[Rfam]
MIR397 microRNA precursor family: a 120-nucleotide sequence from Populus trichocarpa. Taxonomically the source falls in Populus (Eukaryota, Tracheophyta, Euphyllophyta, Magnoliopsida). Rfam links the family to the GO terms RISC complex and miRNA-mediated post-transcriptional gene silencing.
Nucleotides: 120
Base pairs, nucleotide, nucleotide: 006117007116009114010113011112013110014109015108016107017106018105019104020103021102022101023100024099025098026097027096028095030093031092032091033090034089035088
Number, partner (000 for none) and nucleotide at each position: 001000u002000g003000g004000a005000g006117a007116a008000c009114c010113a011112u012000c013110a014109u015108u016107g017106a018105g019104u020103g021102c022101a023100g024099c025098g026097u027096u028095g029000a030093u031092g032091a033090a034089a035088u036000c037000c038000u039000c040000c041000a042000u043000u044000u045000u046000g047000u048000g049000c050000u051000a052000u053000u054000a055000a056000a057000c058000u059000g060000u061000u062000a063000c064000c065000a066000a067000c068000c069000c070000u071000u072000u073000a074000u075000g076000g077000g078000g079000c080000a081000u082000g083000g084000c085000a086000u087000c088035a089034u090033u091032u092031c093030a094000c095028c096027a097026g098025c099024g100023c101022u102021g103020c104019a105018u106017u107016c108015a109014a110013u111000c112011a113010u114009g115000u116007u117006u118000u119000u120000c